[Rfam]
RNA sequence: UGUUGAAUGAUGAGAAGAAUCAGACGGAUUCCCACUGAUAUUUGGUAUAUGAUUUCACAACCAGCUACUUCUGACAACA
Numbered sequence: 001u002g003u004u005g006a007a008u009g010a011u012g013a014g015a016a017g018a019a020u021c022a023g024a025c026g027g028a029u030u031c032c033c034a035c036u037g038a039u040a041u042u043u044g045g046u047a048u049a050u051g052a053u054u055u056c057a058c059a060a061c062c063a064g065c066u067a068c069u070u071c072u073g074a075c076a077a078c079a
Stems, first nucleotide, its partner, number of pairs: 001079005

Shown here is a 79-nucleotide RNA sequence from Carya illinoinensis, a member of the family "Small nucleolar RNA R12". It scores 70 bits against the family's covariance model. The family's RNA type in Rfam is C/D-box small nucleolar RNA. The family's consensus secondary structure was predicted with PFOLD. On this family, see Chen et al., Nucleic Acids Res 2003: "The high diversity of snoRNAs in plants: identification and comparative study of 120 snoRNA genes from Oryza sativa".